Nucleotides: 041
Stems, first nucleotide, its partner, number of pairs: 001016006
Number, partner (000 for none) and nucleotide at each position: 001016g002015g003014c004013u005012c006011u007000u008000u009000u010000c011006a012005g013004a014003g015002c016001c017000a018000c019000c020000c021000a022000c023000a024000c025000u026000g027000c028000c029000u030000g031000a032000a033000a034000a035000g036000a037000g038000u039000u040000g041000u

A member of the RNA family "Histone 3' UTR stem-loop" from Scopus umbretta, 41 nucleotides long. It scores 36 bits against the family's covariance model. The family's RNA type in Rfam is cis-regulatory element. The organism belongs to Scopus, within Eukaryota. For this family Rfam cites "The sequence of the stem and flanking sequences at the 3' end of histone mRNA are critical determinants for the binding of the stem-loop binding protein" (Williams and Marzluff, Nucleic Acids Res, 1995). The mRNAs of metazoan histone genes lack a poly-A tail. 3' end processing occurs at a site between a highly conserved stem-loop (modelled by this family) and a purine rich region around 20 nts downstream (the histone downstream element, or HDE).